[Rfam]
RNA sequence: ACGCGCUGGCGGGACUCGGUGAAAUUCCGAACCGGCGGUGAUCCGGUGCCUUGACGGCCCGGUAAGCCCGCGACCCGGUCGACGACAUGUCGAACGGUGGACCUGGUGAAAAUCCGGGGCCGACGGUCAAAGUCCGGAUGGGAGACAGCGCGC
Numbered sequence: 001a002c003g004c005g006c007u008g009g010c011g012g013g014a015c016u017c018g019g020u021g022a023a024a025u026u027c028c029g030a031a032c033c034g035g036c037g038g039u040g041a042u043c044c045g046g047u048g049c050c051u052u053g054a055c056g057g058c059c060c061g062g063u064a065a066g067c068c069c070g071c072g073a074c075c076c077g078g079u080c081g082a083c084g085a086c087a088u089g090u091c092g093a094a095c096g097g098u099g100g101a102c103c104u105g106g107u108g109a110a111a112a113u114c115c116g117g118g119g120c121c122g123a124c125g126g127u128c129a130a131a132g133u134c135c136g137g138a139u140g141g142g143a144g145a146c147a148g149c150g151c152g153c
Stems, first nucleotide, its partner, number of pairs: 003151006010144001017029003031133002033122002035071004066120002075097002102118005124136003